[Rfam]
Shown here is a 317-nucleotide RNA sequence from Winogradskyella sp. J14-2, a member of the family "Bacterial RNase P class A". It is annotated as a ribozyme. The organism belongs to Winogradskyella, within Bacteria.
RNA sequence: CUAGUAAAUCGCCUUAUCGAUUCUAAUUUAAUUAGGGUAGGAAAGUCCGAACACCAUAGUGCAAGCAUAGUGGUUAAUAGCCACCAGCCGAGAGGUUAGGAAAAGUGCAACAGAAAGUAUGUACAGGUAAUGCUGUAGUGAAAUCAGGUAAACUCUAUGCGGUGCAAUGUCAUGUAUACCAACGUUUGAGGGCUGCACGUUCGAUGUUGGAGGGUAGGCAGCUAAAGUUUGCUGGUAACAGUAAACGUAGAUAAAUGAUAAGGGUUGAAACUAUAAAGGUCUCAAUACAGAAUUCGGCUUAUAGAUUUGCUGGUUUU
Numbered sequence: 001c002u003a004g005u006a007a008a009u010c011g012c013c014u015u016a017u018c019g020a021u022u023c024u025a026a027u028u029u030a031a032u033u034a035g036g037g038u039a040g041g042a043a044a045g046u047c048c049g050a051a052c053a054c055c056a057u058a059g060u061g062c063a064a065g066c067a068u069a070g071u072g073g074u075u076a077a078u079a080g081c082c083a084c085c086a087g088c089c090g091a092g093a094g095g096u097u098a099g100g101a102a103a104a105g106u107g108c109a110a111c112a113g114a115a116a117g118u119a120u121g122u123a124c125a126g127g128u129a130a131u132g133c134u135g136u137a138g139u140g141a142a143a144u145c146a147g148g149u150a151a152a153c154u155c156u157a158u159g160c161g162g163u164g165c166a167a168u169g170u171c172a173u174g175u176a177u178a179c180c181a182a183c184g185u186u187u188g189a190g191g192g193c194u195g196c197a198c199g200u201u202c203g204a205u206g207u208u209g210g211a212g213g214g215u216a217g218g219c220a221g222c223u224a225a226a227g228u229u230u231g232c233u234g235g236u237a238a239c240a241g242u243a244a245a246c247g248u249a250g251a252u253a254a255a256u257g258a259u260a261a262g263g264g265u266u267g268a269a270a271c272u273a274u275a276a277a278g279g280u281c282u283c284a285a286u287a288c289a290g291a292a293u294u295c296g297g298c299u300u301a302u303a304g305a306u307u308u309g310c311u312g313g314u315u316u317u
Base pairs, nucleotide, nucleotide: 001313002312003311004310005309006308007307008306009305010304011302012263013262014261015260016259017258018257020038021037022036023035024034025033026032027031043300044299045298047297048296049295050294051293052164053163054162055161065160066159067158068157069156070084071083072082073081074080085099086097087096088095089094100155101154105153106152107149108148122137123136124135125134126133168220169219170218171217179210180209181208182207183206190202191201192200193199227246228245229244230243231242232241233240234239